A member of the RNA family "7SK RNA" from Thinocorus orbignyianus, 312 nucleotides long. Taxonomically the source falls in Thinocorus (Eukaryota, Craniata, Gnathostomata, Thinocoridae). From the family's description: 7SK was discovered as an abundant small nuclear RNA in the mid-70s but a possible function has only recently been suggested. Two independent studies have found that 7SK RNA binds the CDK9/cyclin T complex (known as elongation factor P-TEFb). P-TEFb activates transcription by phosphorylating the C-terminal domain of RNA polymerase II. This process is negatively regulated by the 7SK RNP. The secondary structure of 7SK RNA shown here was proposed by Wasserman and Steitz on the basis of chemical modification and enzymatic cleavage experiments. This family contains a number of annotated pseudogenes and 7SK derived repeats. The threshold is artificially high to minimise the pseudogene count. It is annotated as a non-coding RNA gene.
RNA sequence: GGAUGUGAGGGUGAUCUGUCUGUGACACCUGUCACCCCAUUGAUCACCAGGGAUGACUCAGCUGAUAUGGGUGGCUAGGCAGGUGUCCUUUUCCUCCCUCACCACUCCAUGUGCAUCCCUCCUGAAGCUGCGUGCUUGGUUGAAGAAGAUGACCUUCCCCGACUCAUCAGUCAAAGUUCCAAGGUAGCUGUGCUCCCCUCCUAGAACCUCUAAACAAGCUCAAAGUCCAUUUGAGGGAGAACAUAGGGUAGUCAAGUUUCCAAGACUGCAGACACAUCCAAGUGAGGCAUUGCAUGUUUCAUGUAUAAUAUU
Number, nucleotide and partner (000 for none) at each position: 001g108002g107003a106004u000005g102006u101007g100008a099009g098010g097011g096012u000013g093014a092015u000016c000017u000018g090019u000020c000021u000022g000023u000024g087025a086026c085027a084028c083029c082030u081031g080032u079033c078034a000035c074036c073037c070038c069039a068040u000041u000042g000043a066044u065045c064046a000047c061048c000049a000050g000051g000052g000053a000054u000055g000056a000057c000058u000059c000060a000061g047062c000063u000064g045065a044066u043067a000068u039069g038070g037071g000072u000073g036074g035075c000076u000077a000078g033079g032080c031081a030082g029083g028084u027085g026086u025087c024088c000089u000090u018091u000092u014093c013094c000095u000096c011097c010098c009099u008100c007101a006102c005103c000104a000105c000106u003107c002108c001109a000110u000111g000112u000113g000114c000115a000116u000117c170118c000119c000120u166121c000122c139123u138124g137125a136126a000127g135128c134129u000130g000131c000132g000133u000134g128135c127136u125137u124138g123139g122140u162141u161142g160143a000144a000145g000146a000147a000148g157149a156150u000151g000152a000153c000154c000155u000156u149157c148158c000159c000160c142161g141162a140163c000164u000165c000166a120167u000168c000169a000170g117171u000172c000173a000174a000175a000176g000177u000178u000179c000180c000181a000182a000183g000184g000185u000186a000187g257188c256189u255190g000191u000192g000193c251194u250195c000196c248197c247198c246199u245200c000201c000202u000203a000204g000205a000206a000207c000208c239209u238210c237211u236212a000213a000214a000215c233216a232217a231218g230219c000220u000221c000222a000223a000224a000225g000226u000227c000228c000229a000230u218231u217232u216233g215234a000235g000236g211237g210238a209239g208240a000241a000242c000243a000244u000245a199246g198247g197248g196249u000250a194251g193252u000253c000254a000255a189256g188257u187258u000259u000260c000261c000262a000263a000264g000265a000266c000267u000268g000269c000270a000271g000272a000273c000274a000275c000276a000277u000278c000279c000280a312281a311282g000283u000284g000285a306286g000287g304288c303289a000290u000291u301292g300293c000294a000295u000296g000297u000298u000299u000300c292301a291302u000303g288304u287305a000306u285307a000308a000309u000310a000311u281312u280